Background
Shown here is an 89-nucleotide sequence from Cellulomonas sp. SLBN-39, a member of the family "ZMP/ZTP riboswitch aptamer (pfl RNA motif)".

RNA sequence: CGACCCGGUCGUGACUGGCGCAGGUGGAGGCAACCACCGGGGAGCGGCCGCAGCCGGUCCACCGUGCACCGCCCGCCUGGGUGCGCGGG
Numbered sequence: 001c002g003a004c005c006c007g008g009u010c011g012u013g014a015c016u017g018g019c020g021c022a023g024g025u026g027g028a029g030g031c032a033a034c035c036a037c038c039g040g041g042g043a044g045c046g047g048c049c050g051c052a053g054c055c056g057g058u059c060c061a062c063c064g065u066g067c068a069c070c071g072c073c074c075g076c077c078u079g080g081g082u083g084c085g086c087g088g089g
Base pairs, nucleotide, nucleotide: 006050007049008048009047010046011045012044015041016040017077018076019075020074024037025036026035027034066084067083068082069081070080